This 112-nucleotide RNA from Noviherbaspirillum cavernae belongs to the Rfam family "Y RNA-like". The organism belongs to Noviherbaspirillum, within Bacteria. A reference for the family is Chen et al. (2013), "An RNA degradation machine sculpted by Ro autoantigen and noncoding RNA", Cell. The match comes from Rfam's covariance-model search (78 bits). The base pairs follow the family's consensus structure, which is taken from published work. In Deinococcus radiodurans Rsr is tethered via Y RNA to the exoribonuclease PNPase and channels single-stranded RNA into the PNPase cavity. The family has 6 seed sequences and 124 matches in Rfam 15.1.
Nucleotides: 112
Stems, first nucleotide, its partner, number of pairs: 002108006013095007023087003031047005038077001048065006068083004
Number, partner (000 for none) and nucleotide at each position: 001000c002108g003107c004106g005105c006104g007103a008000a009000u010000g011000c012000g013095g014094a015093a016092a017091g018090a019089a020000c021000u022000a023087c024086a025085u026000g027000u028000g029000u030000c031047c032046c033045c034044g035043g036000u037000u038077c039000g040000a041000a042000u043035c044034c045033g046032g047031g048065c049064g050063g051062g052061u053060g054000c055000a056000a057000a058000g059000g060053c061052a062051u063050c064049c065048g066000u067000a068083g069082c070081u071080c072000a073000g074000c075000g076000g077038g078000u079000a080071g081070a082069g083068c084000a085025g086024u087023g088000u089019u090018u091017c092016u093015u094014u095013c096000a097000a098000u099000g100000u101000u102000g103007u104006c105005g106004c107003g108002c109000c110000g111000c112000u